[Rfam]
RNA sequence: AAGUGAAUAGGUGAUGGUGUUCGCCUUUAAACGUUUAUCAAUAAACUAAUGACGCCUACUAAAAA
Numbered sequence: 001a002a003g004u005g006a007a008u009a010g011g012u013g014a015u016g017g018u019g020u021u022c023g024c025c026u027u028u029a030a031a032c033g034u035u036u037a038u039c040a041a042u043a044a045a046c047u048a049a050u051g052a053c054g055c056c057u058a059c060u061a062a063a064a065a
Stems, first nucleotide, its partner, number of pairs: 010025004016056006033046004
The family of this 65-nucleotide sequence from Enterococcus thailandicus is "Fluoride riboswitch aptamer (crcB RNA motif)". The match comes from Rfam's covariance-model search (53 bits). The organism belongs to Enterococcus, within Bacteria. Pairs were carried over by alignment from the consensus structure, which is taken from published work. For this family Rfam cites "An excited state underlies gene regulation of a transcriptional riboswitch" (Zhao et al., Nat Chem Biol, 2017).